[Rfam]
RNA sequence: UGAGUGGGCAAGAUGAUCGCUGGAGUCGUUUCCGCGAAAGCGGUGGCGAUUUCUGGAGGAAAGUCCGGGCUCCGCAGGAUAGGAUGGUCGAUAACGUCGACCGGCCGCGAGGCUAGGGAAAGUGCAGCAGAGAAUAGACCGCCGAACGGUGUCUUUGACAUGCGUGGUAAGGGUGAAACGGUGCGGUAAGAGCGCACCAGCGGUCGAGGUGACUCGAUCGGCUUGGUAAACCCCAUCCGGAGCUAGACCAAACAGAGUGCAGUGAAUCGGUCUUCGGAUCGGUCCCGGCGUGUGAUCCGCACGGCUAUCGACACUCGGGUAGGUCGCGAUUGAGGCGGCGAGCAAUCGUCGUGCACAGAUAAAUGGUCGUCGGCGAAAAUUUUUUGGUUUUCGUCACAGAACCCGGCUUACCAACCCACUCACGAC
Numbered sequence: 001u002g003a004g005u006g007g008g009c010a011a012g013a014u015g016a017u018c019g020c021u022g023g024a025g026u027c028g029u030u031u032c033c034g035c036g037a038a039a040g041c042g043g044u045g046g047c048g049a050u051u052u053c054u055g056g057a058g059g060a061a062a063g064u065c066c067g068g069g070c071u072c073c074g075c076a077g078g079a080u081a082g083g084a085u086g087g088u089c090g091a092u093a094a095c096g097u098c099g100a101c102c103g104g105c106c107g108c109g110a111g112g113c114u115a116g117g118g119a120a121a122g123u124g125c126a127g128c129a130g131a132g133a134a135u136a137g138a139c140c141g142c143c144g145a146a147c148g149g150u151g152u153c154u155u156u157g158a159c160a161u162g163c164g165u166g167g168u169a170a171g172g173g174u175g176a177a178a179c180g181g182u183g184c185g186g187u188a189a190g191a192g193c194g195c196a197c198c199a200g201c202g203g204u205c206g207a208g209g210u211g212a213c214u215c216g217a218u219c220g221g222c223u224u225g226g227u228a229a230a231c232c233c234c235a236u237c238c239g240g241a242g243c244u245a246g247a248c249c250a251a252a253c254a255g256a257g258u259g260c261a262g263u264g265a266a267u268c269g270g271u272c273u274u275c276g277g278a279u280c281g282g283u284c285c286c287g288g289c290g291u292g293u294g295a296u297c298c299g300c301a302c303g304g305c306u307a308u309c310g311a312c313a314c315u316c317g318g319g320u321a322g323g324u325c326g327c328g329a330u331u332g333a334g335g336c337g338g339c340g341a342g343c344a345a346u347c348g349u350c351g352u353g354c355a356c357a358g359a360u361a362a363a364u365g366g367u368c369g370u371c372g373g374c375g376a377a378a379a380u381u382u383u384u385u386g387g388u389u390u391u392c393g394u395c396a397c398a399g400a401a402c403c404c405g406g407c408u409u410a411c412c413a414a415c416c417c418a419c420u421c422a423c424g425a426c
Stems, first nucleotide, its partner, number of pairs: 001422008012371007020056004024051007061409003065406005070242004077298004082238005087101005102116001103114004117233002122231002124227002139172002141168004147162002180198006200222001201220008246325004255316005289303005334354001335352007
RNA: Bacterial RNase P class A